[Rfam]
RNA sequence: AGAGUCAUACGUUGAAGGCUUAGCCAGCUACGGCGGCCCCGAGUCAUGCGUGCACGUUCGUGAGGGCGUGGGCGAAGCGUUGACAGGGGAAAAGGCAGGCCGGGUAUUGAGCUGCGAAAUACAUGCCCUGCGCCGUAAGGCGCAGGUGGUUCGGGGUGCCGAGGUUUUGGAGACAUGCCGAAGGCCACACCGUGCUUGCCGCAUUGGCGAGGCAAGCGCGGACCUCGCGCAGUCAGAGACCC
Dot-bracket structure: .........(((((..(((([.[[.)))).))))).((((..(((((((((.(((((((....))))))).)))...)).)))).))))..................((.((((((...................................(((((((((..(((...........)))...)))....(((((((((((......]].])))))))))))))))))))))))).)......
Rfam assigns this 242-nucleotide sequence from Variovorax sp. CF079 to the family "Group II catalytic intron D1-D4-6". Gene Ontology term of the family: Group II intron splicing. Rfam describes the family as follows. Group II introns are found in rRNA, tRNA and mRNA of organelles in fungi, plants and protists, and also in mRNA in bacteria. The match comes from Rfam's covariance-model search (174 bits).